[Rfam]
RNA sequence: AUCCUCGACACGGGGUGCUCCGCACGGGCGGGGCUGAGACAACACCCGCACACCUGUUCAGGUAAUGCUGACGAAGGGAUGUCAUGGGCGACACCU
Numbered sequence: 001a002u003c004c005u006c007g008a009c010a011c012g013g014g015g016u017g018c019u020c021c022g023c024a025c026g027g028g029c030g031g032g033g034c035u036g037a038g039a040c041a042a043c044a045c046c047c048g049c050a051c052a053c054c055u056g057u058u059c060a061g062g063u064a065a066u067g068c069u070g071a072c073g074a075a076g077g078g079a080u081g082u083c084a085u086g087g088g089c090g091a092c093a094c095c096u
Stems, first nucleotide, its partner, number of pairs: 007083004011048004016042001017034005053077003058071004

Shown here is a 96-nucleotide sequence from Speluncibacter jeojiensis, a member of the family "TPP riboswitch aptamer (THI element)". The match comes from Rfam's covariance-model search (55 bits). NCBI's taxonomy places the organism under Bacteria, Bacillati, Mycobacteriales, Speluncibacteraceae, Speluncibacter. The base pairs follow the family's consensus structure, which is taken from published work.